[Rfam]
Rfam assigns this 215-nucleotide RNA sequence from Malus baccata to the family "Early nodulin 40".
The family's consensus secondary structure is taken from published work.
RNA sequence: AUGGGGCUUAAAAGCAUUGGACAUGGAGUGAGGAUUUGCCCCAAACCUCCUCCAAAACUCAAACAGUUAGUCUGAGCUCAGUCAAUGGCUGCUGCAACUACACCAAGUGCAAUUAUCAUACAUACUGAUCAUAUGAUCUGGAGGUAGCAGAGGUUUGGGCUCGUGCUUAGCGAACCGGCAAGUCACAAAUCGGCAACGGACUCAGUCAUGAGUCC
Numbered sequence: 001a002u003g004g005g006g007c008u009u010a011a012a013a014g015c016a017u018u019g020g021a022c023a024u025g026g027a028g029u030g031a032g033g034a035u036u037u038g039c040c041c042c043a044a045a046c047c048u049c050c051u052c053c054a055a056a057a058c059u060c061a062a063a064c065a066g067u068u069a070g071u072c073u074g075a076g077c078u079c080a081g082u083c084a085a086u087g088g089c090u091g092c093u094g095c096a097a098c099u100a101c102a103c104c105a106a107g108u109g110c111a112a113u114u115a116u117c118a119u120a121c122a123u124a125c126u127g128a129u130c131a132u133a134u135g136a137u138c139u140g141g142a143g144g145u146a147g148c149a150g151a152g153g154u155u156u157g158g159g160c161u162c163g164u165g166c167u168u169a170g171c172g173a174a175c176c177g178g179c180a181a182g183u184c185a186c187a188a189a190u191c192g193g194c195a196a197c198g199g200a201c202u203c204a205g206u207c208a209u210g211a212g213u214c215c
Base pairs, nucleotide, nucleotide: 025053026052027051066175067174068173070171071170083165084164199214200213201212202211203210
The family has 35 seed sequences and 341 matches in Rfam 15.1. The organism belongs to Malus, within Eukaryota.